The family of this 76-nucleotide RNA sequence from Hirundo rustica is "Small nucleolar RNA SNORD26". Rfam links the family to the GO terms nucleolus and RNA processing. Clan: SNORD26 clan. The family has 17 seed sequences and 451 matches in Rfam 15.1. The family's RNA type in Rfam is C/D-box small nucleolar RNA. Pairs were carried over by alignment from the consensus structure, which was predicted with PFOLD. On this family, see Tycowski et al., Proc Natl Acad Sci U S A 1996: "A small nucleolar RNA requirement for site-specific ribose methylation of rRNA in Xenopus".
[Rfam]
RNA sequence: CUGCGGGGAUGAUCGCGCUGAACUCUCUCUUUCUGAUGGGUCCGUGGAGAAGUUUCUGGACUUUCUUCUGAGUGGC
Numbered sequence: 001c002u003g004c005g006g007g008g009a010u011g012a013u014c015g016c017g018c019u020g021a022a023c024u025c026u027c028u029c030u031u032u033c034u035g036a037u038g039g040g041u042c043c044g045u046g047g048a049g050a051a052g053u054u055u056c057u058g059g060a061c062u063u064u065c066u067u068c069u070g071a072g073u074g075g076c
Base pairs, nucleotide, nucleotide: 001075002074003073004072